[Rfam]
RNA: mir-302 microRNA precursor family
RNA sequence: CUGUACUUUAACAUGGAGGUACUUGCUGGCUAUUUUUAAAGUAAGUGCUUCUAUGUUUCAGUACUG
Dot-bracket structure: (..((((..((((((((((((((((((............))))))))))))))))))..))))..)